[Rfam]
RNA sequence: GUGAAGUUGAUCACAAGCAAACAUAUACCCCUUUGUUUGACCGUGAAAAAUUUCUCCCAUCCCCUUUGUUCGUAUUAAUAUAGAAAAAGGCCUUGCCAGCAACCGGUGCUGCAAGGCCUUUUUC
Numbered sequence: 001g002u003g004a005a006g007u008u009g010a011u012c013a014c015a016a017g018c019a020a021a022c023a024u025a026u027a028c029c030c031c032u033u034u035g036u037u038u039g040a041c042c043g044u045g046a047a048a049a050a051u052u053u054c055u056c057c058c059a060u061c062c063c064c065u066u067u068g069u070u071c072g073u074a075u076u077a078a079u080a081u082a083g084a085a086a087a088a089g090g091c092c093u094u095g096c097c098a099g100c101a102a103c104c105g106g107u108g109c110u111g112c113a114a115g116g117c118c119u120u121u122u123u124c
Stems, first nucleotide, its partner, number of pairs: 003054006011046004018039006070082001086121011